The record is a 74-nucleotide RNA from Glutamicibacter sp. BW77, which matches "tRNA" in Rfam.
Pairs were carried over by alignment from the consensus structure, which is taken from published work.
It scores 70 bits against the family's covariance model.
RNA sequence: GGGGCGUUAGCUCAGUUGGUUAGAGCAGGGAACUCAUAAUUCCUUGGUCGUCGGUUCAAGUCCGACACGCCCUA
Numbered sequence: 001g002g003g004g005c006g007u008u009a010g011c012u013c014a015g016u017u018g019g020u021u022a023g024a025g026c027a028g029g030g031a032a033c034u035c036a037u038a039a040u041u042c043c044u045u046g047g048u049c050g051u052c053g054g055u056u057c058a059a060g061u062c063c064g065a066c067a068c069g070c071c072c073u074a
Stems, first nucleotide, its partner, number of pairs: 001073007010026004028044005050066005
Dot-bracket structure: (((((((..((((.........)))).(((((.......))))).....(((((.......)))))))))))).
The literature on the family includes a 1997 paper in Nucleic Acids Res by Lowe and Eddy, "tRNAscan-SE: a program for improved detection of transfer RNA genes in genomic sequence". NCBI's taxonomy places the organism under Bacteria, Bacillati, Actinomycetota, Micrococcaceae, Glutamicibacter.